[Rfam]
RNA sequence: GUGGAUGUGAUGUUUCUCUUUCCCCAGACGAUCGACUCUGAUUAUAACGAGCGCUUUUUGUGUCUUUUCUCUUCUACGAGAAAACCAAGCCAGAUUUCUGAUCCGC
Numbered sequence: 001g002u003g004g005a006u007g008u009g010a011u012g013u014u015u016c017u018c019u020u021u022c023c024c025c026a027g028a029c030g031a032u033c034g035a036c037u038c039u040g041a042u043u044a045u046a047a048c049g050a051g052c053g054c055u056u057u058u059u060g061u062g063u064c065u066u067u068u069c070u071c072u073u074c075u076a077c078g079a080g081a082a083a084a085c086c087a088a089g090c091c092a093g094a095u096u097u098c099u100g101a102u103c104c105g106c
Base pairs, nucleotide, nucleotide: 001106002105003104004103005102
RNA: Small nucleolar RNA Z103